[Rfam]
RNA sequence: AGCUGAUGCACAUGGCGACUCCCAGUCGCGCAGCAGCUGUUCCCCUCUGGAGGUUUCAGAUCUCCACACUUCAUGGGCCGCGGUAUCCGCUGGCCCAUUUUU
Dot-bracket structure: (((((.(((.....((((.......))))))).))))).........(((((((.....))))))).......((((((((((...)))).)))))).....

Alphaproteobacterial ar15: a 102-nucleotide RNA sequence from Neorhizobium alkalisoli. The base pairs follow the family's consensus structure. The family has 61 seed sequences and 316 matches in Rfam 15.1. Lineage of the source: Bacteria > Pseudomonadati > Pseudomonadota > Alphaproteobacteria > Neorhizobium. It is annotated as a small RNA.